[Rfam]
RNA sequence: GGCUACGUAGCUCAGCUGGUUAGAGCACAGCACUCAUAAUGCUGGGGUCGCAGGUUCGAAUCCCGCCGUAGCCA
Number, nucleotide and partner (000 for none) at each position: 001g073002g072003c071004u070005a069006c068007g067008u000009a000010g026011c025012u024013c023014a000015g000016c000017u000018g000019g000020u000021u000022a000023g013024a012025g011026c010027a000028c044029a043030g042031c041032a040033c000034u000035c000036a000037u000038a000039a000040u032041g031042c030043u029044g028045g000046g000047g000048u000049c000050g066051c065052a000053g063054g062055u000056u000057c000058g000059a000060a000061u000062c054063c053064c000065g051066c050067c007068g006069u005070a004071g003072c002073c001074a000
RNA: tRNA
Organism: Pseudidiomarina salinarum